[Rfam]
RNA sequence: GCCAAUGAUGAGUUGCCCUCUAAAUUAGGUGUUGGCCACUCCAAGCCCUUAAUUGGGAGAACCUACUUGGGGUCCUACACUAGUAUGAGAUAUAUGGGCUUUGACUGAGGU
Numbered sequence: 001g002c003c004a005a006u007g008a009u010g011a012g013u014u015g016c017c018c019u020c021u022a023a024a025u026u027a028g029g030u031g032u033u034g035g036c037c038a039c040u041c042c043a044a045g046c047c048c049u050u051a052a053u054u055g056g057g058a059g060a061a062c063c064u065a066c067u068u069g070g071g072g073u074c075c076u077a078c079a080c081u082a083g084u085a086u087g088a089g090a091u092a093u094a095u096g097g098g099c100u101u102u103g104a105c106u107g108a109g110g111u
Stems, first nucleotide, its partner, number of pairs: 001111003046057003
Source information
The record is a 111-nucleotide sequence from Digitaria exilis, which matches "Small nucleolar RNA Z278" in Rfam. Rfam 15.1 lists 1,130 matches to the family in 214 species. snoZ278 is a C/D box small nucleolar RNA. Its methylation guide targets have not been reported. Pairs were carried over by alignment from the consensus structure, which was predicted with PFOLD. NCBI's taxonomy places the organism under Eukaryota, Tracheophyta, Mesangiospermae, Panicoideae, Digitaria.